[Rfam]
RNA sequence: GCGGAGCUCGACCGCCGGUCGAAAUGAUGGUGGAUUUCAUCGACGCGCAUAGGGGCGCCCACGGGGUCGAGCCGAUCUGCACGGUGCUGCCGAUCGCCCCU
Numbered sequence: 001g002c003g004g005a006g007c008u009c010g011a012c013c014g015c016c017g018g019u020c021g022a023a024a025u026g027a028u029g030g031u032g033g034a035u036u037u038c039a040u041c042g043a044c045g046c047g048c049a050u051a052g053g054g055g056c057g058c059c060c061a062c063g064g065g066g067u068c069g070a071g072c073c074g075a076u077c078u079g080c081a082c083g084g085u086g087c088u089g090c091c092g093a094u095c096g097c098c099c100c101u
Stems, first nucleotide, its partner, number of pairs: 001015004063100004073096002076093002079090003
RNA: ALIL pseudoknot
Organism: Roseivivax halodurans